[Rfam]
Rfam assigns this 143-nucleotide sequence from Aspergillus ustus to the family "A. fumigatus sRNA Afu_254". A search with the family's covariance model found it, with a score of 88 bits. A reference for the family is Jochl et al. (2008), "Small ncRNA transcriptome analysis from Aspergillus fumigatus suggests a novel mechanism for regulation of protein synthesis", Nucleic Acids Res. NCBI's taxonomy places the organism under Eukaryota, Ascomycota, saccharomyceta, Eurotiomycetidae, Aspergillus subgen. Nidulantes. The base pairs follow the family's consensus structure, which was predicted with WAR.
RNA sequence: CUCCAAAGACCAACUUCAAACAAACGACCUUCAAAGUCAACCCCAAACCCAACCACCCCACUUCAAGAUGUCUCCCUGCGACUGCACCUGCUGCUCCGGCGACUGCAACUCCUGCUCUUGCGGUGACUGCAGCGUAAGUCUCU
Numbered sequence: 001c002u003c004c005a006a007a008g009a010c011c012a013a014c015u016u017c018a019a020a021c022a023a024a025c026g027a028c029c030u031u032c033a034a035a036g037u038c039a040a041c042c043c044c045a046a047a048c049c050c051a052a053c054c055a056c057c058c059c060a061c062u063u064c065a066a067g068a069u070g071u072c073u074c075c076c077u078g079c080g081a082c083u084g085c086a087c088c089u090g091c092u093g094c095u096c097c098g099g100c101g102a103c104u105g106c107a108a109c110u111c112c113u114g115c116u117c118u119u120g121c122g123g124u125g126a127c128u129g130c131a132g133c134g135u136a137a138g139u140c141u142c143u
Stems, first nucleotide, its partner, number of pairs: 077101003084094003105130003114121002